RNA sequence: CUAUGACAAAUAUUUUGUCAUGGCGGAAGGAG
Numbered sequence: 001c002u003a004u005g006a007c008a009a010a011u012a013u014u015u016u017g018u019c020a021u022g023g024c025g026g027a028a029g030g031a032g
Stems, first nucleotide, its partner, number of pairs: 001023010

This 32-nucleotide RNA sequence belongs to the Rfam family "L31-Firmicutes ribosomal protein leader". A reference for the family is Eckert and Weinberg (2020), "Discovery of 20 novel ribosomal leader candidates in bacteria and archaea", BMC Microbiol. Clan: Ribosomal Protein L31 Leader clan.